[Rfam]
RNA sequence: CAAAGCAAGAAGGAGCGCCCGCUUCUCACCUGAUCGACGCACAGCGCAGUUGACAGGUCUACAUGUAAUAAUGUCUCAUGAUGACAAACAUGAGUGUGGGCGUCGUAUGCCCACACUCUUUUGUGUUG
Dot-bracket structure: ..........((((((....)))))).(((.....(((((.....)).)))....)))....................................(((((((((...))))))))).............
Ribosomal protein L20 leader: a 128-nucleotide sequence from Halalkalibacterium halodurans. The sequence is in the family's curated seed alignment. The source organism's lineage runs through Bacteria, Bacillota, Caryophanales, Bacillaceae and Halalkalibacterium halodurans.